Shown here is a 48-nucleotide RNA from Desemzia incerta, a member of the family "Na+ riboswitch aptamer (DUF1646)". Lineage of the source: Bacteria > Bacillati > Bacillota > Carnobacteriaceae > Desemzia. The base pairs follow the family's consensus structure, which is taken from published work. Gene Ontology terms of the family: regulation of gene expression and sodium ion binding.
RNA sequence: GGUUGGGCAUUAGCUUUCAAGAGAAAUAAUCUUCUAGGGUGAGAAGAC
Numbered sequence: 001g002g003u004u005g006g007g008c009a010u011u012a013g014c015u016u017u018c019a020a021g022a023g024a025a026a027u028a029a030u031c032u033u034c035u036a037g038g039g040u041g042a043g044a045a046g047a048c
Stems, first nucleotide, its partner, number of pairs: 003020003006015003030047006